[Rfam]
RNA sequence: UUGCAUGUGGAAAUGUCUGCCCCUCAUUUCUUCAGGGGCAGGAAUGCAUCCAUAACAUGCUACAUUAACAAAGAGGUUCUCAGGGCUGCCAGCCUUAUAGUAGAGGCUGAGUGGUAGUAUAUUUCUCCUACAUAA
Numbered sequence: 001u002u003g004c005a006u007g008u009g010g011a012a013a014u015g016u017c018u019g020c021c022c023c024u025c026a027u028u029u030c031u032u033c034a035g036g037g038g039c040a041g042g043a044a045u046g047c048a049u050c051c052a053u054a055a056c057a058u059g060c061u062a063c064a065u066u067a068a069c070a071a072a073g074a075g076g077u078u079c080u081c082a083g084g085g086c087u088g089c090c091a092g093c094c095u096u097a098u099a100g101u102a103g104a105g106g107c108u109g110a111g112u113g114g115u116a117g118u119a120u121a122u123u124u125c126u127c128c129u130a131c132a133u134a135a
Stems, first nucleotide, its partner, number of pairs: 003060006016042008073128001075126002085115002089111001090109007
Annotation:
The family of this 135-nucleotide RNA sequence from Ictidomys tridecemlineatus is "Small nucleolar RNA U109". The family's consensus secondary structure was predicted with WAR. Lineage of the source: Eukaryota > Chordata > Teleostomi > Marmotini > Ictidomys. The literature on the family includes a 2003 paper in EMBO J by Richard et al., "A common sequence motif determines the Cajal body-specific localization of box H/ACA scaRNAs". Its family is annotated with RNA processing and nucleolus in the Gene Ontology.